[Rfam]
RNA: DUF3800-IX RNA
RNA sequence: GAUACAGCCCUGAUUAGUCGCCUUUAUGGUGGCGUCUCCGCAAGGAGUAGGGGCUGUAUUUUAU
Numbered sequence: 001g002a003u004a005c006a007g008c009c010c011u012g013a014u015u016a017g018u019c020g021c022c023u024u025u026a027u028g029g030u031g032g033c034g035u036c037u038c039c040g041c042a043a044g045g046a047g048u049a050g051g052g053g054c055u056g057u058a059u060u061u062u063a064u
Base pairs, nucleotide, nucleotide: 001060002059003058004057005056006055007054008053009052010051011050017033018032019031020030021029022028036047037046038045039044